[Rfam]
RNA sequence: AGGCAGGGGUGAGGGGCUGCGGGAGGAGCGGGGCGGAGGCUGCGGCUUGCGCUUCUCCUGGCUCUCCUCCCUUUCUUU
Number, nucleotide and partner (000 for none) at each position: 001a000002g076003g075004c000005a074006g073007g072008g071009g070010u000011g069012a068013g067014g066015g065016g064017c000018u000019g000020c060021g059022g058023g057024a056025g055026g054027a053028g052029c051030g050031g000032g047033g046034c045035g000036g043037a000038g000039g000040c000041u000042g000043c036044g000045g034046c033047u032048u000049g000050c030051g029052c028053u027054u026055c025056u024057c023058c022059u021060g020061g000062c000063u000064c016065u015066c014067c013068u012069c011070c009071c008072u007073u006074u005075c003076u002077u000078u000
This 78-nucleotide sequence from Rattus norvegicus belongs to the Rfam family "mir-207 microRNA precursor family".
The literature on the family includes a 2003 paper in RNA by Lagos-Quintana et al., "New microRNAs from mouse and human".
The family's consensus secondary structure was predicted with RNAalifold.
Rfam links the family to the GO terms miRNA-mediated post-transcriptional gene silencing and RISC complex.